This 396-nucleotide RNA from Alkaliphilus metalliredigens belongs to the Rfam family "Bacterial RNase P class A". For this family Rfam cites "The Ribonuclease P Database" (Brown, Nucleic Acids Res, 1999). It is annotated as a ribozyme.
[Rfam]
RNA sequence: CGAGUAAGUCAGAUGAUCGCGGCCACAGACUUGUUCUGUGGACGAGGAAAGUCCGAGCUCCGUAGGGCAAGGGUGCUGGGUAAUUCCCAGUGGAGGUGACUCUAAGGAUAGUGCAACAGAGAUAUACCGCCAGAACCCCUACUCAGUAGCAAUACUGGGUAUGUGGUGAGACAGCCUUAGGGCUGUCUGGUAAGGCUGGAAAGGUGCGGUAAGAGCGCACCAGCAGUUAGGCGACUAACUGGCUAUGUAAACCCCAUCCGGAGCAAGACCAAGUAGGGACUAGAAAACGCGGCUGCCCGUCGCGUCCCGUGGUAGGUCGCUUGAGCUAACUGGUAACAGUUAGCCUAGACAGAUGAUCGUCAAAUACAGAACUCGGCUUAUAGACUUACUCGCUUA
Numbered sequence: 001c002g003a004g005u006a007a008g009u010c011a012g013a014u015g016a017u018c019g020c021g022g023c024c025a026c027a028g029a030c031u032u033g034u035u036c037u038g039u040g041g042a043c044g045a046g047g048a049a050a051g052u053c054c055g056a057g058c059u060c061c062g063u064a065g066g067g068c069a070a071g072g073g074u075g076c077u078g079g080g081u082a083a084u085u086c087c088c089a090g091u092g093g094a095g096g097u098g099a100c101u102c103u104a105a106g107g108a109u110a111g112u113g114c115a116a117c118a119g120a121g122a123u124a125u126a127c128c129g130c131c132a133g134a135a136c137c138c139c140u141a142c143u144c145a146g147u148a149g150c151a152a153u154a155c156u157g158g159g160u161a162u163g164u165g166g167u168g169a170g171a172c173a174g175c176c177u178u179a180g181g182g183c184u185g186u187c188u189g190g191u192a193a194g195g196c197u198g199g200a201a202a203g204g205u206g207c208g209g210u211a212a213g214a215g216c217g218c219a220c221c222a223g224c225a226g227u228u229a230g231g232c233g234a235c236u237a238a239c240u241g242g243c244u245a246u247g248u249a250a251a252c253c254c255c256a257u258c259c260g261g262a263g264c265a266a267g268a269c270c271a272a273g274u275a276g277g278g279a280c281u282a283g284a285a286a287a288c289g290c291g292g293c294u295g296c297c298c299g300u301c302g303c304g305u306c307c308c309g310u311g312g313u314a315g316g317u318c319g320c321u322u323g324a325g326c327u328a329a330c331u332g333g334u335a336a337c338a339g340u341u342a343g344c345c346u347a348g349a350c351a352g353a354u355g356a357u358c359g360u361c362a363a364a365u366a367c368a369g370a371a372c373u374c375g376g377c378u379u380a381u382a383g384a385c386u387u388a389c390u391c392g393c394u395u396a
Stems, first nucleotide, its partner, number of pairs: 001392010011381001012361007020044002023041006049379003053376005058263004065298004071259005076090005091105001092103004106254002111252002113248003127195002129191005134184001136182002203221006223243001224241007267318004277307004289303005325344008